Background: Shown here is a 94-nucleotide RNA sequence from Friedmanniella luteola, a member of the family "Actino-pnp RNA". Pairs were carried over by alignment from the consensus structure, which is taken from published work. NCBI's taxonomy places the organism under Bacteria, Bacillati, Actinomycetota, Nocardioidaceae, Friedmanniella.

[Rfam]
RNA sequence: UUCGGUCCUCGGUAGUGGUCUUCGGGUCCGCCGGCCCCGUGCCGGCGCGCAGGUCGUCACCUGCCCGACCCGCGGACCUCGAUCGAAGACCGGC
Numbered sequence: 001u002u003c004g005g006u007c008c009u010c011g012g013u014a015g016u017g018g019u020c021u022u023c024g025g026g027u028c029c030g031c032c033g034g035c036c037c038c039g040u041g042c043c044g045g046c047g048c049g050c051a052g053g054u055c056g057u058c059a060c061c062u063g064c065c066c067g068a069c070c071c072g073c074g075g076a077c078c079u080c081g082a083u084c085g086a087a088g089a090c091c092g093g094c
Stems, first nucleotide, its partner, number of pairs: 002093006009086005017078005023072006